[Rfam]
Shown here is a 190-nucleotide RNA from Spodoptera exigua, a member of the family "U2 spliceosomal RNA". The match comes from Rfam's covariance-model search (149 bits). NCBI's taxonomy places the organism under Eukaryota, Ecdysozoa, Altocrustacea, Amphipyrinae, Spodoptera. Gene Ontology terms of the family: U2 snRNP, mRNA branch site recognition and pre-mRNA branch point binding. About the family: U2 is a small nuclear RNA (snRNA) component of the spliceosome (involved in pre-mRNA splicing).
RNA sequence: AUCGCUUCAUCGGCCUUGUGGCUAAGAUCAAGCUGACUAUCUGUUCUUUUCAGCUUAAUAUCUGAAAAUUCCUCAAUGGGGAACCAGAAAUUAACUGAAUUUUUUUAAACCGAUGGAAGUAUGGAGCUUGCUCCUCUUCCAUCACGGGUCGGCCCGGCAUUGCAGUGCCGCCGGGAUCGGCCCACAGAAC
Numbered sequence: 001a002u003c004g005c006u007u008c009a010u011c012g013g014c015c016u017u018g019u020g021g022c023u024a025a026g027a028u029c030a031a032g033c034u035g036a037c038u039a040u041c042u043g044u045u046c047u048u049u050u051c052a053g054c055u056u057a058a059u060a061u062c063u064g065a066a067a068a069u070u071c072c073u074c075a076a077u078g079g080g081g082a083a084c085c086a087g088a089a090a091u092u093a094a095c096u097g098a099a100u101u102u103u104u105u106u107a108a109a110c111c112g113a114u115g116g117a118a119g120u121a122u123g124g125a126g127c128u129u130g131c132u133c134c135u136c137u138u139c140c141a142u143c144a145c146g147g148g149u150c151g152g153c154c155c156g157g158c159a160u161u162g163c164a165g166u167g168c169c170g171c172c173g174g175g176a177u178c179g180g181c182c183c184a185c186a187g188a189a190c
Stems, first nucleotide, its partner, number of pairs: 007027002010025001012023004048067006069083006112143008123134004146183006153175006